[Rfam]
RNA sequence: AGCUUGGAUUUUUUUGUGUCUUAUGAUGAAGCUUCAUAGGGCAGAUUCUGAGCUGAGAAAUUAAAUUUCUCUCCACUGAUAGUCUCUAUGCCAUCUGAAGACACUUAAGUAUUG
Numbered sequence: 001a002g003c004u005u006g007g008a009u010u011u012u013u014u015u016g017u018g019u020c021u022u023a024u025g026a027u028g029a030a031g032c033u034u035c036a037u038a039g040g041g042c043a044g045a046u047u048c049u050g051a052g053c054u055g056a057g058a059a060a061u062u063a064a065a066u067u068u069c070u071c072u073c074c075a076c077u078g079a080u081a082g083u084c085u086c087u088a089u090g091c092c093a094u095c096u097g098a099a100g101a102c103a104c105u106u107a108a109g110u111a112u113u114g
Stems, first nucleotide, its partner, number of pairs: 013107001016104006031094001035090003039085003044080001047079002050076001052074001055071005

About this RNA: The record is a 114-nucleotide RNA sequence from Oreotrochilus melanogaster, which matches "Small nucleolar RNA SNORD90" in Rfam. The family's RNA type in Rfam is C/D-box small nucleolar RNA. About the family: snoRNA HBII-295 belongs to the family of C/D snoRNAs. It is the human orthologue of the mouse MBII-295 and has no identified RNA target.